[Rfam]
RNA sequence: CAACGAUAAAGGCAAACCCGGUGAAAGCCGGGGGCGCAAAGCCAUGGGUCUAAGGCGUAUAAGCGCUAUGACUGCCAGGCUGCCGAA
Numbered sequence: 001c002a003a004c005g006a007u008a009a010a011g012g013c014a015a016a017c018c019c020g021g022u023g024a025a026a027g028c029c030g031g032g033g034g035c036g037c038a039a040a041g042c043c044a045u046g047g048g049u050c051u052a053a054g055g056c057g058u059a060u061a062a063g064c065g066c067u068a069u070g071a072c073u074g075c076c077a078g079g080c081u082g083c084c085g086a087a
Stems, first nucleotide, its partner, number of pairs: 012037002017032006040081004045077003048072003055066004
Dot-bracket structure: ...........((...((((((....))))))...))..((((.((((((....((((....))))...)))..)))))))......